RNA sequence: UAACCUAUACCGAGAGGUAUAACUGAACAUUCAGAAGUCAGUUCAAGUCAUAGUACUGUAGGAGCUUCUUCGAAAGUUGAGGUUAGGGAAGGAC
Numbered sequence: 001u002a003a004c005c006u007a008u009a010c011c012g013a014g015a016g017g018u019a020u021a022a023c024u025g026a027a028c029a030u031u032c033a034g035a036a037g038u039c040a041g042u043u044c045a046a047g048u049c050a051u052a053g054u055a056c057u058g059u060a061g062g063a064g065c066u067u068c069u070u071c072g073a074a075a076g077u078u079g080a081g082g083u084u085a086g087g088g089a090a091g092g093a094c
Stems, first nucleotide, its partner, number of pairs: 001025002006021006038045001047094003056087002068082003
RNA: Group II catalytic intron D1-D4-1